Description:
Rfam assigns this 93-nucleotide RNA from Aquabacterium olei to the family "SAH (S-adenosyl-L-homocysteine) riboswitch aptamer". The organism belongs to Aquabacterium, within Bacteria. It scores 60 bits against the family's covariance model.
RNA sequence: GCUUUCGAGGAGCGUUGCAAGGCCCCUGACCCUCCGGUCGGCGCAGGCCCCAGGCUCGAAAGACAAGACCUCUUGCAACGGCGCUCACCCGCA
Numbered sequence: 001g002c003u004u005u006c007g008a009g010g011a012g013c014g015u016u017g018c019a020a021g022g023c024c025c026c027u028g029a030c031c032c033u034c035c036g037g038u039c040g041g042c043g044c045a046g047g048c049c050c051c052a053g054g055c056u057c058g059a060a061a062g063a064c065a066a067g068a069c070c071u072c073u074u075g076c077a078a079c080g081g082c083g084c085u086c087a088c089c090c091g092c093a
Base pairs, nucleotide, nucleotide: 002062003061004060005059006058007057008056021049022048023047024046